[Rfam]
RNA: Pseudomonas sRNA P11
RNA sequence: GUAUUUCAGAAUUGGCACAGGCUCUGCAAAGCAAACGUCGAAGAUGACAUACGACCUGACCCUCAACGUGGAGCGGCAGGUUUCCCGACUGAGCGGGACACGGACAAAGGCGUCCUCACCGGAGAACCGGUGGGACGCC
Numbered sequence: 001g002u003a004u005u006u007c008a009g010a011a012u013u014g015g016c017a018c019a020g021g022c023u024c025u026g027c028a029a030a031g032c033a034a035a036c037g038u039c040g041a042a043g044a045u046g047a048c049a050u051a052c053g054a055c056c057u058g059a060c061c062c063u064c065a066a067c068g069u070g071g072a073g074c075g076g077c078a079g080g081u082u083u084c085c086c087g088a089c090u091g092a093g094c095g096g097g098a099c100a101c102g103g104a105c106a107a108a109g110g111c112g113u114c115c116u117c118a119c120c121g122g123a124g125a126a127c128c129g130g131u132g133g134g135a136c137g138c139c
Base pairs, nucleotide, nucleotide: 012107013106014105015027016026017025054081055080056079057078058077060075063072064071083098084097085096086095087094109139110138111137112136113135114134115133117132118131119130120129121128122127